Background: Rfam assigns this 129-nucleotide RNA sequence from Nannospalax galili to the family "Small nucleolar RNA SNORA65". The organism belongs to Nannospalax, within Eukaryota. Rfam links the family to the GO terms RNA processing and nucleolus. On this family, see Huttenhofer et al., EMBO J 2001: "RNomics: an experimental approach that identifies 201 candidates for novel, small, non-messenger RNAs in mouse". The family is grouped with related families in Rfam's "SNORA65 clan". Rfam describes the family as follows. U65 belongs to the H/ACA class of snoRNAs which are thought to guide the sites of modification of uridines to pseudouridines.
RNA sequence: CACUCCACUGCACCUGACCAGUUCUUGUUGGCUGGUGCAAUCCAGUGGUGAGCUGAAAGUACGCCCCAGUUUUUAAGAAACAGGGAUUUUACAUGUGGAUGACUUUGUGCUGAAAGUGUGGGAACAGCC
Numbered sequence: 001c002a003c004u005c006c007a008c009u010g011c012a013c014c015u016g017a018c019c020a021g022u023u024c025u026u027g028u029u030g031g032c033u034g035g036u037g038c039a040a041u042c043c044a045g046u047g048g049u050g051a052g053c054u055g056a057a058a059g060u061a062c063g064c065c066c067c068a069g070u071u072u073u074u075a076a077g078a079a080a081c082a083g084g085g086a087u088u089u090u091a092c093a094u095g096u097g098g099a100u101g102a103c104u105u106u107g108u109g110c111u112g113a114a115a116g117u118g119u120g121g122g123a124a125c126a127g128c129c
Base pairs, nucleotide, nucleotide: 005048006047007046008045009044010043017036018035019034020033021032023030064122065121066120068119069117070116071115072114076111077110081107082106083105084104085103087099088098089097